[Rfam]
This 108-nucleotide RNA sequence from Aquimarina sp. TRL1 belongs to the Rfam family "6S-Flavo RNA". The family's RNA type in Rfam is small RNA. A search with the family's covariance model found it, with a score of 109 bits.
RNA sequence: ACUCAACAAGAAUUAAUUAAAAAGGGUGAGUUUAAGUUGUAAAAGCAAGCCUCCUUAGAGGGGAUCCUUGAUCAGCUUGUUAGCCCUAAACCUGUUUUUACAGAGUUU
Numbered sequence: 001a002c003u004c005a006a007c008a009a010g011a012a013u014u015a016a017u018u019a020a021a022a023a024g025g026g027u028g029a030g031u032u033u034a035a036g037u038u039g040u041a042a043a044a045g046c047a048a049g050c051c052u053c054c055u056u057a058g059a060g061g062g063g064a065u066c067c068u069u070g071a072u073c074a075g076c077u078u079g080u081u082a083g084c085c086c087u088a089a090a091c092c093u094g095u096u097u098u099u100a101c102a103g104a105g106u107u108u
Stems, first nucleotide, its partner, number of pairs: 023087005034078005043069003050063004